[Rfam]
A member of the RNA family "tRNA" from Trogon melanurus, 73 nucleotides long. The family's RNA type in Rfam is transfer RNA.

RNA sequence: GGCUGGUUAGCUCACUUGGUUAGAGCGUGGUGCUGAUAACACCAAGGUUGCGGGUUCGAUCCCCGUUCAGUCC
Numbered sequence: 001g002g003c004u005g006g007u008u009a010g011c012u013c014a015c016u017u018g019g020u021u022a023g024a025g026c027g028u029g030g031u032g033c034u035g036a037u038a039a040c041a042c043c044a045a046g047g048u049u050g051c052g053g054g055u056u057c058g059a060u061c062c063c064c065g066u067u068c069a070g071u072c073c
Stems, first nucleotide, its partner, number of pairs: 001072006010026004028044005050066005
Pairs were carried over by alignment from the consensus structure, which is taken from published work.